A member of the RNA family "FMN riboswitch aptamer (RFN element)" from Terrilactibacillus tamarindi, 129 nucleotides long. The base pairs follow the family's consensus structure, which is taken from published work.

[Rfam]
RNA sequence: ACGUUCCUUCAGGGCAGGGUGAAAUUCCCGACCGGCGGUGUUGAGUAUCGACUCUAAGUCCGCGAGCUUUCGAGCAGAUCUGGUUAGAUUCCAGAACCGACAGUACAGUCUGGAUGGGAGAAGGAUGAU
Numbered sequence: 001a002c003g004u005u006c007c008u009u010c011a012g013g014g015c016a017g018g019g020u021g022a023a024a025u026u027c028c029c030g031a032c033c034g035g036c037g038g039u040g041u042u043g044a045g046u047a048u049c050g051a052c053u054c055u056a057a058g059u060c061c062g063c064g065a066g067c068u069u070u071c072g073a074g075c076a077g078a079u080c081u082g083g084u085u086a087g088a089u090u091c092c093a094g095a096a097c098c099g100a101c102a103g104u105a106c107a108g109u110c111u112g113g114a115u116g117g118g119a120g121a122a123g124g125a126u127g128a129u
Stems, first nucleotide, its partner, number of pairs: 005125006017029003031109002033099002035063004058097002066075003079095005101112003